Shown here is a 125-nucleotide sequence from Xenorhabdus innexi, a member of the family "Phenylalanine leader peptide". Lineage of the source: Bacteria > Pseudomonadati > Enterobacterales > Morganellaceae > Xenorhabdus. The base pairs follow the family's consensus structure, which was predicted with CMfinder. On this family, see Zurawski et al., Proc Natl Acad Sci U S A 1978: "Nucleotide sequence of the leader region of the phenylalanine operon of Escherichia coli".
RNA sequence: AAAAUGAUGAAAUUGGCUUUUUUUCGUUUCUUUUUUUACUUUAGCGCCUGAAAUUAGGGGGCUUUGCGCGUAAGAAAAGAAACGAAAAACAGCGCUUGAGCCUCCGGUCUGGAGGCUUUUUUAUU
Number, nucleotide and partner (000 for none) at each position: 001a000002a000003a000004a000005u000006g000007a000008u000009g000010a000011a000012a000013u000014u000015g000016g093017c092018u091019u000020u000021u088022u087023u086024u085025c084026g083027u082028u081029u080030c079031u078032u077033u076034u075035u000036u073037u072038a071039c070040u000041u000042u000043a000044g000045c000046g000047c058048c057049u056050g000051a000052a000053a000054u000055u000056a049057g048058g047059g065060g064061g000062c000063u000064u060065u059066g000067c000068g000069c000070g039071u038072a037073a036074g000075a034076a033077a032078a031079g030080a029081a028082a027083c026084g025085a024086a023087a022088a021089a000090c000091a018092g017093c016094g000095c000096u000097u000098g118099a117100g116101c115102c114103u113104c112105c111106g110107g000108u000109c000110u106111g105112g104113a103114g102115g101116c100117u099118u098119u000120u000121u000122u000123a000124u000125u000